[Rfam]
RNA: c-di-AMP riboswitch aptamer (ydaO/yuaA leader)
Organism: Paenibacillus wynnii
RNA sequence: GUGCACAAAACGCCAAAUUCCUGAGCACCAGGAAGUGGGGGAACCAUAUUUUGGGUGAAUUGAUCUCCUUACAGAGGGAUCAUAGGGGGCCUUCCACCGAACCCUUAAGCUAACCUCGCCGGCACUAGGAGGAAUACAU
Numbered sequence: 001g002u003g004c005a006c007a008a009a010a011c012g013c014c015a016a017a018u019u020c021c022u023g024a025g026c027a028c029c030a031g032g033a034a035g036u037g038g039g040g041g042a043a044c045c046a047u048a049u050u051u052u053g054g055g056u057g058a059a060u061u062g063a064u065c066u067c068c069u070u071a072c073a074g075a076g077g078g079a080u081c082a083u084a085g086g087g088g089g090c091c092u093u094c095c096a097c098c099g100a101a102c103c104c105u106u107a108a109g110c111u112a113a114c115c116u117c118g119c120c121g122g123c124a125c126u127a128g129g130a131g132g133a134a135u136a137c138a139u
Stems, first nucleotide, its partner, number of pairs: 012123003018034006035119006046051001053104003061082007085098002088095001